[Rfam]
RNA sequence: GGUUCGGGAGCCGCGCGGUGGGACGCGUGGCACGAAUGGAACCUCACCCCUGCAUUCGUAUGCCGCUUCACAGGGGCCCCGACCUGUGAUGC
Numbered sequence: 001g002g003u004u005c006g007g008g009a010g011c012c013g014c015g016c017g018g019u020g021g022g023a024c025g026c027g028u029g030g031c032a033c034g035a036a037u038g039g040a041a042c043c044u045c046a047c048c049c050c051u052g053c054a055u056u057c058g059u060a061u062g063c064c065g066c067u068u069c070a071c072a073g074g075g076g077c078c079c080c081g082a083c084c085u086g087u088g089a090u091g092c
Base pairs, nucleotide, nucleotide: 001043002042003041004040005039010031011030012029013028014027015026016025017024065092066091068089069088070087071086072085073084074083
A member of the RNA family "Rhodo-rpoB RNA" from Paracoccus tegillarcae, 92 nucleotides long. It scores 70 bits against the family's covariance model. The family's consensus secondary structure is taken from published work.